Small nucleolar RNA U54: a 91-nucleotide RNA from Tripterygium wilfordii.
[Rfam]
RNA sequence: UGCUCUGUGAUUAUUUGCCUAAUUGUGGGCAAUAUACGCUAUUCCGACUCAAGAACAUGAGCAGAAAUAUAUGAAAUAUAUUAUGAGAGCC
Numbered sequence: 001u002g003c004u005c006u007g008u009g010a011u012u013a014u015u016u017g018c019c020u021a022a023u024u025g026u027g028g029g030c031a032a033u034a035u036a037c038g039c040u041a042u043u044c045c046g047a048c049u050c051a052a053g054a055a056c057a058u059g060a061g062c063a064g065a066a067a068u069a070u071a072u073g074a075a076a077u078a079u080a081u082u083a084u085g086a087g088a089g090c091c
Stems, first nucleotide, its partner, number of pairs: 002090004

Clan: U54 clan. Taxonomically the source falls in Tripterygium (Eukaryota, Embryophyta, fabids, Celastrales). Its family is annotated with nucleolus and RNA processing in the Gene Ontology. The family's consensus secondary structure was predicted with PFOLD. From the family's description: U54 is a C/D box small nucleolar RNA, which acts as a methylation guide for 18S ribosomal RNA in plants.